A member of the RNA family "Bacterial small signal recognition particle RNA" from Sphingorhabdus sp. SMR4y, 95 nucleotides long. By type it is a non-coding RNA gene. From the family's description: The signal recognition particle (SRP) is a universally conserved ribonucleoprotein involved in the co-translational targeting of proteins to membranes.
[Rfam]
RNA sequence: GCGGGAGUCGGGUGGACGCAGUCGUCGCCAACCCGGUCAGGUCCGGAAGGAAGCAGCCGCAACGAUUUUUCUGCGGGUCGCCCGGCUCCUACUUU
Numbered sequence: 001g002c003g004g005g006a007g008u009c010g011g012g013u014g015g016a017c018g019c020a021g022u023c024g025u026c027g028c029c030a031a032c033c034c035g036g037u038c039a040g041g042u043c044c045g046g047a048a049g050g051a052a053g054c055a056g057c058c059g060c061a062a063c064g065a066u067u068u069u070u071c072u073g074c075g076g077g078u079c080g081c082c083c084g085g086c087u088c089c090u091a092c093u094u095u
Stems, first nucleotide, its partner, number of pairs: 004089011017075005024066004034059004042051003